[Rfam]
RNA sequence: GGUCGCAGCGCGGGAGAGUCCGCUGACGCGGCGCCGAAGAGGCAAAUCCUCCCCGGAAACUUUCAGGCACAAGGGACCGCGCAGGUUGG
Numbered sequence: 001g002g003u004c005g006c007a008g009c010g011c012g013g014g015a016g017a018g019u020c021c022g023c024u025g026a027c028g029c030g031g032c033g034c035c036g037a038a039g040a041g042g043c044a045a046a047u048c049c050u051c052c053c054c055g056g057a058a059a060c061u062u063u064c065a066g067g068c069a070c071a072a073g074g075g076a077c078c079g080c081g082c083a084g085g086u087u088g089g
Stems, first nucleotide, its partner, number of pairs: 006084001008082006020031004033068003036064002040062003047055001

Source information
Glycine riboswitch aptamer: an 89-nucleotide sequence from Actinoplanes philippinensis. A search with the family's covariance model found it, with a score of 60 bits. Taxonomically the source falls in Actinoplanes (Bacteria, Actinomycetota, Actinomycetes, Micromonosporales).